[Rfam]
RNA sequence: UAAUUAGGAACGCAGUGUAAGAGCGCCACGUCCUGUGGCAACGACUUGCAUGACCUACAUCCUGUAGG
Number, nucleotide and partner (000 for none) at each position: 001u000002a000003a000004u000005u000006a000007g000008g000009a000010a000011c000012g049013c048014a047015g045016u044017g000018u000019a000020a000021g000022a000023g000024c000025g039026c038027c037028a036029c035030g000031u000032c000033c000034u000035g029036u028037g027038g026039c025040a000041a000042c000043g000044a016045c015046u000047u014048g013049c012050a000051u000052g000053a000054c068055c067056u066057a065058c064059a000060u000061c000062c000063u000064g058065u057066a056067g055068g054
Source information
Shown here is a 68-nucleotide RNA from Sporosarcina sp. JAI121, a member of the family "Bacillaceae-1 RNA". A search with the family's covariance model found it, with a score of 65 bits. Rfam 15.1 lists 5,721 matches to the family in 247 species. Rfam classes the family as a small RNA.